[Rfam]
Annotation
Shown here is a 212-nucleotide sequence from Rhodovastum atsumiense, a member of the family "permuted transfer-messenger RNA". The base pairs follow the family's consensus structure, which is taken from published work. The match comes from Rfam's covariance-model search (141 bits). On this family, see Mao et al., RNA Biol 2010: "Variations on the tmRNA gene".
RNA sequence: GGCGAUAAACGGUGCGUGGAAUAAGCGUUGUGGACCCGGGGGCAGUGCCCGGCGCCUCCACCAUGGACCCGGUGAACCCGAGUCGUGGCUAGGGGGGCGAAACAGGAUCGACACGCGUGGUAAAGACCCAUCUUUUGCCCGGCAUGGUUCCGCCGUCAUCGGGCCAAUUCACAAGUGCCAACGACAACGUGGCGCUCGCUGCCGCUGCAUAA
Numbered sequence: 001g002g003c004g005a006u007a008a009a010c011g012g013u014g015c016g017u018g019g020a021a022u023a024a025g026c027g028u029u030g031u032g033g034a035c036c037c038g039g040g041g042g043c044a045g046u047g048c049c050c051g052g053c054g055c056c057u058c059c060a061c062c063a064u065g066g067a068c069c070c071g072g073u074g075a076a077c078c079c080g081a082g083u084c085g086u087g088g089c090u091a092g093g094g095g096g097g098c099g100a101a102a103c104a105g106g107a108u109c110g111a112c113a114c115g116c117g118u119g120g121u122a123a124a125g126a127c128c129c130a131u132c133u134u135u136u137g138c139c140c141g142g143c144a145u146g147g148u149u150c151c152g153c154c155g156u157c158a159u160c161g162g163g164c165c166a167a168u169u170c171a172c173a174a175g176u177g178c179c180a181a182c183g184a185c186a187a188c189g190u191g192g193c194g195c196u197c198g199c200u201g202c203c204g205c206u207g208c209a210u211a212a
Stems, first nucleotide, its partner, number of pairs: 001139005014129001016127002026117003030114003036052005053099007140155004